Nucleotides: 169
Base pairs, nucleotide, nucleotide: 005165006164007163008162009161010160011155012154013098015151018149021145022144023143027140028139029138030137031136032135033134040116041115042114043113044112046076047075048074049072050071055066056065057064058063083107084106085105086104089101090100091099118129119128
Number, partner (000 for none) and nucleotide at each position: 001000a002000u003000a004000a005165u006164u007163c008162c009161u010160c011155g012154u013098u014000a015151g016000c017000a018149u019000g020000a021145g022144g023143c024000g025000u026000u027140u028139g029138c030137a031136c032135a033134a034000a035000c036000a037000c038000a039000g040116g041115c042114u043113a044112c045000u046076g047075c048074c049072c050071a051000g052000a053000a054000a055066c056065g057064u058063c059000g060000a061000a062000a063058g064057a065056c066055g067000c068000c069000a070000a071050u072049g073000c074048g075047g076046u077000c078000c079000a080000a081000c082000a083107g084106g085105u086104u087000u088000u089101g090100u091099c092000g093000g094000c095000u096000u097000a098013a099091g100090g101089c102000u103000u104086a105085a106084c107083c108000c109000a110000a111000u112044g113043u114042a115041g116040c117000u118129g119128g120000u121000u122000c123000a124000c125000u126000a127000u128119c129118c130000u131000a132000c133000g134033u135032u136031g137030u138029g139028c140027a141000c142000u143023g144022c145021c146000g147000a148000a149018a150000a151015u152000c153000u154012a155011c156000c157000a158000g159000g160010g161009g162008g163007g164006a165005a166000g167000c168000g169000g